The record is a 537-nucleotide part of an RNA from Methanococcus aeolicus, which matches "Archaeal large subunit ribosomal RNA" in Rfam. Its family is annotated with ribosome and structural constituent of ribosome in the Gene Ontology. Pairs were carried over by alignment from the consensus structure, which is taken from published work.
[Rfam]
RNA sequence: CUAUUACCCUAUCUGGGGGAUGGCUUGGCUUGGAACGCCUAUGAAGGACGUGGUAAGCUGCGAUAAGCUCAUGCGAGGCGCAUACAGCCGUAGAACAUGAGAUUUCCGAAUGGGACUUCCUGCUCUUUUGAGCGAUUCGUAAGAAUCGGGAACGCGGGGGAUUGAAGCAUCUUAGUACCCGCAGGAAGAGAAAUCAAACGAGAUUCCGUUAGUAGAGGCGAUUGAACACGGAACAGGGCAAACUGAAUCCCGCAAGGGAGAUGUGGUGUUAUAGGAAAUCUCUUACGACUUAGGAAAGGAUGCCGAAGUUGUCUGGAAAGGCACAUCAUAGAGGGUGAUAAUCCCGUAGGUAUAACUGACCUGAGUUUGAGAUUUUCCUGAGUACCGUGCGUUGGAUAUCGCGCGGGAAUUUGGGAGGCAUCGACUUCCAACCCUAAAUACGUUCCAAGACCGAUAGUGCACUAGUACCGUGAGGGAAAGCUGAAAAGCACCCUUAACCGGGUGUGAAAAGUGCCUGAAACCAGAUAGGUAUCGUAU
Numbered sequence: 001c002u003a004u005u006a007c008c009c010u011a012u013c014u015g016g017g018g019g020a021u022g023g024c025u026u027g028g029c030u031u032g033g034a035a036c037g038c039c040u041a042u043g044a045a046g047g048a049c050g051u052g053g054u055a056a057g058c059u060g061c062g063a064u065a066a067g068c069u070c071a072u073g074c075g076a077g078g079c080g081c082a083u084a085c086a087g088c089c090g091u092a093g094a095a096c097a098u099g100a101g102a103u104u105u106c107c108g109a110a111u112g113g114g115a116c117u118u119c120c121u122g123c124u125c126u127u128u129u130g131a132g133c134g135a136u137u138c139g140u141a142a143g144a145a146u147c148g149g150g151a152a153c154g155c156g157g158g159g160g161a162u163u164g165a166a167g168c169a170u171c172u173u174a175g176u177a178c179c180c181g182c183a184g185g186a187a188g189a190g191a192a193a194u195c196a197a198a199c200g201a202g203a204u205u206c207c208g209u210u211a212g213u214a215g216a217g218g219c220g221a222u223u224g225a226a227c228a229c230g231g232a233a234c235a236g237g238g239c240a241a242a243c244u245g246a247a248u249c250c251c252g253c254a255a256g257g258g259a260g261a262u263g264u265g266g267u268g269u270u271a272u273a274g275g276a277a278a279u280c281u282c283u284u285a286c287g288a289c290u291u292a293g294g295a296a297a298g299g300a301u302g303c304c305g306a307a308g309u310u311g312u313c314u315g316g317a318a319a320g321g322c323a324c325a326u327c328a329u330a331g332a333g334g335g336u337g338a339u340a341a342u343c344c345c346g347u348a349g350g351u352a353u354a355a356c357u358g359a360c361c362u363g364a365g366u367u368u369g370a371g372a373u374u375u376u377c378c379u380g381a382g383u384a385c386c387g388u389g390c391g392u393u394g395g396a397u398a399u400c401g402c403g404c405g406g407g408a409a410u411u412u413g414g415g416a417g418g419c420a421u422c423g424a425c426u427u428c429c430a431a432c433c434c435u436a437a438a439u440a441c442g443u444u445c446c447a448a449g450a451c452c453g454a455u456a457g458u459g460c461a462c463u464a465g466u467a468c469c470g471u472g473a474g475g476g477a478a479a480g481c482u483g484a485a486a487a488g489c490a491c492c493c494u495u496a497a498c499c500g501g502g503u504g505u506g507a508a509a510a511g512u513g514c515c516u517g518a519a520a521c522c523a524g525a526u527a528g529g530u531a532u533c534g535u536a537u
Stems, first nucleotide, its partner, number of pairs: 008529009022515001023481002027452002029449006036442002046107003049062003068101006077089003112121003135146004153184001154182005164171002194201002205232005215223002235435004243266003248259004277374004287367004302351003308324001310323004327331001333345003385406007413429005468475002